This 101-nucleotide sequence from Camellia sinensis belongs to the Rfam family "mir-395 microRNA precursor family". For this family Rfam cites "Computational Identification of Plant MicroRNAs and Their Targets, Including a Stress-Induced miRNA" (Jones-Rhoades and Bartel, Mol Cell, 2004).

RNA sequence: GUGUCCCCUAGAGUUUCCCCACAACACUUCAUUGGGGACUUUCUUUUUUCCUUUUUUUUAAACAUUCCUACUGAAGUGUUUGGGGGAACUCCUGGGAUCAU
Number, nucleotide and partner (000 for none) at each position: 001g000002u000003g000004u000005c000006c096007c095008c094009u000010a000011g091012a090013g089014u088015u087016u086017c085018c084019c083020c082021a000022c000023a080024a079025c078026a077027c076028u075029u074030c073031a072032u000033u070034g069035g068036g067037g000038a000039c000040u000041u000042u000043c000044u000045u000046u000047u000048u000049u000050c000051c000052u000053u000054u000055u000056u000057u000058u000059u000060a000061a000062a000063c000064a000065u000066u000067c036068c035069u034070a033071c000072u031073g030074a029075a028076g027077u026078g025079u024080u023081u000082g020083g019084g018085g017086g016087a015088a014089c013090u012091c011092c000093u000094g008095g007096g006097a000098u000099c000100a000101u000
About the family: mir-395 was identified in both Arabidopsis thaliana and Oryza sativa computationally and was later experimentally verified. mir-395 is thought to target mRNAs coding for ATP sulphurylases. A search with the family's covariance model found it, with a score of 74 bits. The family's consensus secondary structure was predicted with PFOLD.